[Rfam]
Rfam assigns this 290-nucleotide RNA sequence from Hyaloscypha bicolor to the family "A. fumigatus sRNA Afu_309". Pairs were carried over by alignment from the consensus structure, which was predicted with WAR. NCBI's taxonomy places the organism under Eukaryota, Dikarya, Leotiomycetes, Hyaloscypha hepaticicola/Rhizoscyphus ericae species complex, Hyaloscypha bicolor. It is annotated as a small RNA.

RNA sequence: UUUUCUUUCACAACAACAGAUUUGUGCCCAGCGGUCCCUUCAACCUUCUGCUUGCAGUCGCGUUGUAAGGUCGACUGCUGAGGCAGCUCGAUCGUACUAUGGAGCCAUCAUUUUCACUGGUGUCAAUCAUCCGAUCGACAAAUCUCAGAGGAAUCGGUCCUUCGAAGCCUGAAUUCGCUGUAAAAGGCUCGAGCUCGGUGGAGGAGUGUACUGAAGGAGUCAGAUUCCACCUCUCUUUGCCGAUGACCGUUGGUCUGUGAGGCUAGGGAAAAAUCCUGACAACUACAUUU
Dot-bracket structure: .................((((((((((((((.((((((((((..(..(((....)))..)...)).))))..)))).))).)))........((..(..(((.(((............))).))).......)..))))))))))...........((.......(.((.((.(((((........))..))).)))))..........))....(..(((((........(((((..(((...((((...)))).....))).)))))......)))))..).......
Numbered sequence: 001u002u003u004u005c006u007u008u009c010a011c012a013a014c015a016a017c018a019g020a021u022u023u024g025u026g027c028c029c030a031g032c033g034g035u036c037c038c039u040u041c042a043a044c045c046u047u048c049u050g051c052u053u054g055c056a057g058u059c060g061c062g063u064u065g066u067a068a069g070g071u072c073g074a075c076u077g078c079u080g081a082g083g084c085a086g087c088u089c090g091a092u093c094g095u096a097c098u099a100u101g102g103a104g105c106c107a108u109c110a111u112u113u114u115c116a117c118u119g120g121u122g123u124c125a126a127u128c129a130u131c132c133g134a135u136c137g138a139c140a141a142a143u144c145u146c147a148g149a150g151g152a153a154u155c156g157g158u159c160c161u162u163c164g165a166a167g168c169c170u171g172a173a174u175u176c177g178c179u180g181u182a183a184a185a186g187g188c189u190c191g192a193g194c195u196c197g198g199u200g201g202a203g204g205a206g207u208g209u210a211c212u213g214a215a216g217g218a219g220u221c222a223g224a225u226u227c228c229a230c231c232u233c234u235c236u237u238u239g240c241c242g243a244u245g246a247c248c249g250u251u252g253g254u255c256u257g258u259g260a261g262g263c264u265a266g267g268g269a270a271a272a273a274u275c276c277u278g279a280c281a282a283c284u285a286c287a288u289u290u
Stems, first nucleotide, its partner, number of pairs: 018145008026084003029080003033076004037070004041065002045060001048057003093137002097133001100125003104121003157211002166199001168198002171196002174193003177188002216283001219280005232269005239263003245255004